A member of the RNA family "Small nucleolar RNA SNORA79" from Sphaeramia orbicularis, 143 nucleotides long. The base pairs follow the family's consensus structure, which was predicted with RNAalifold. A search with the family's covariance model found it, with a score of 61 bits. A reference for the family is Schattner et al. (2006), "A computational screen for mammalian pseudouridylation guide H/ACA RNAs", RNA. ACA65 (SNORA79) is a member of the H/ACA class of snoRNAs that guide the sites of modification of uridines to pseudouridines. This snoRNA was identified by computational screening and its expression in mouse experimentally verified by Northern blot and primer extension analysis. The organism belongs to Sphaeramia, within Eukaryota.
RNA sequence: UGACGUCGUGUUCCUCCUCCCGCUCGCAGCGAAGCUGGAGGAUUUAACGACGUCGCAGAGCGAACAGGGUCUUUUUCACCUGGGAGGCGGCGGGCUGUGGUCCCACCUGAACCCGCCUCCUGGUUUUGCGGGACCCGACAAAC
Numbered sequence: 001u002g003a004c005g006u007c008g009u010g011u012u013c014c015u016c017c018u019c020c021c022g023c024u025c026g027c028a029g030c031g032a033a034g035c036u037g038g039a040g041g042a043u044u045u046a047a048c049g050a051c052g053u054c055g056c057a058g059a060g061c062g063a064a065c066a067g068g069g070u071c072u073u074u075u076u077c078a079c080c081u082g083g084g085a086g087g088c089g090g091c092g093g094g095c096u097g098u099g100g101u102c103c104c105a106c107c108u109g110a111a112c113c114c115g116c117c118u119c120c121u122g123g124u125u126u127u128g129c130g131g132g133a134c135c136c137g138a139c140a141a142a143c
Stems, first nucleotide, its partner, number of pairs: 001055008015042005022035003068135006080123010093108002096105002